[Rfam]
RNA sequence: GAAGGUAGGUCCUUCGAAACCGGCUUUCGGAAGCGGGUUUCAAACCACUUAAUGCUGCUUUGAUAAAGAGUCAUGGUAGUGAGCGAUUAAGAAAAGGCAUUGUGAAAAUGUCAGGU
Number, nucleotide and partner (000 for none) at each position: 001g015002a014003a013004g012005g011006u000007a000008g000009g000010u000011c005012c004013u003014u002015c001016g041017a040018a039019a038020c037021c036022g000023g034024c033025u032026u031027u000028c000029g000030g000031a026032a025033g024034c023035g000036g021037g020038u019039u018040u017041c016042a000043a000044a000045c000046c115047a000048c091049u090050u089051a088052a087053u086054g080055c079056u000057g077058c076059u075060u000061u073062g072063a071064u070065a000066a000067a000068g000069a000070g064071u063072c062073a061074u000075g059076g058077u057078a000079g055080u054081g000082a000083g000084c000085g000086a053087u052088u051089a050090a049091g048092a000093a000094a000095a000096g112097g111098c110099a109100u108101u107102g000103u000104g000105a000106a000107a101108a100109u099110g098111u097112c096113a000114g000115g046116u000

Rfam assigns this 116-nucleotide RNA from Cycloclasticus sp. symbiont of Bathymodiolus heckerae to the family "Group II catalytic intron D1-D4-2". From the family's description: Group II introns are found in rRNA, tRNA and mRNA of organelles in fungi, plants and protists, and also in mRNA in bacteria. A search with the family's covariance model found it, with a score of 115 bits. The pairing is the family consensus, mapped onto this sequence. Rfam 15.1 lists 1,231 matches to the family in 625 species.